[Rfam]
RNA sequence: AUAAAAUGAUGAUAACCCUCAUGCGUGUCAUUUGAAUGCAGCUAAUGUAUUUCUGGCUUUUACCAGUUGUAGGUGUUUUGCUUACAGGUGGAAGGGUUAGGAAGCUAGGCUGUAUACAUGAUACAAGUUGGCUUCUGAUUAU
Numbered sequence: 001a002u003a004a005a006a007u008g009a010u011g012a013u014a015a016c017c018c019u020c021a022u023g024c025g026u027g028u029c030a031u032u033u034g035a036a037u038g039c040a041g042c043u044a045a046u047g048u049a050u051u052u053c054u055g056g057c058u059u060u061u062a063c064c065a066g067u068u069g070u071a072g073g074u075g076u077u078u079u080g081c082u083u084a085c086a087g088g089u090g091g092a093a094g095g096g097u098u099a100g101g102a103a104g105c106u107a108g109g110c111u112g113u114a115u116a117c118a119u120g121a122u123a124c125a126a127g128u129u130g131g132c133u134u135c136u137g138a139u140u141a142u
Base pairs, nucleotide, nucleotide: 001142002141003140004139047106050103051102052101053100054099055098056097

This 142-nucleotide RNA from Strongylocentrotus purpuratus belongs to the Rfam family "Small nucleolar RNA SNORD10". It scores 39 bits against the family's covariance model. The family has 22 seed sequences and 433 matches in Rfam 15.1. For this family Rfam cites "RNomics: an experimental approach that identifies 201 candidates for novel, small, non-messenger RNAs in mouse" (Huttenhofer et al., EMBO J, 2001).